[Rfam]
RNA: tRNA
RNA sequence: GGCCUCGUAGCUCAGUUGGCUAGAGCGUUGGCUGUACUAAAGUUUUCCCCUUACCGACGUGGGUUCGAAUCCCACCGAGGCCG
Dot-bracket structure: (((((((..((((.........))))................................(((((.......)))))))))))).